[Rfam]
RNA sequence: CGGUUAAAGGGCGCGUAGUCGGGCGUAAGGCCAACGAUAAAUACCCAGGUUCCGCCUGGGACUGACGUUGGAACCGGAGCCUUGGGACCGGAGUAGGGCAAUGGUAUUCGGGGGCGAGGGGUGAAAACCGAUGACCCUCCGAGGAGCGACAGAGGCGAAAGCGGUUGUCCACUACGGGUCCGACGAUCAAGCGCGUAGGCAGGAGUAUCGAAGGCGAUUAGACACCGUCGUAGUUUCUGCAGUAAACGAUGCCAACAGGGGAGAGCGGGCCAGCUCUCCCUGAGGGAAACCGAGUGUAUGGGCCCCGGGGAUAGUAUAGGCGCAAGCUGGAAACUUGAAGAAAU
Dot-bracket structure: (((.......((((...(((................................................................((((((.((..((((((((...((((((((...((........))......))))))))...).......((....)).))))))).)).))).)))...)))...))))....((((((....(...((((.........))))...).))))))..........(((.((.(((((((((......)))))))))..((....))..)).....))).))).((........(((....)))......))........
RNA: Microsporidia small subunit ribosomal RNA, nucleotides 448 to 791
Organism: Amblyospora sp.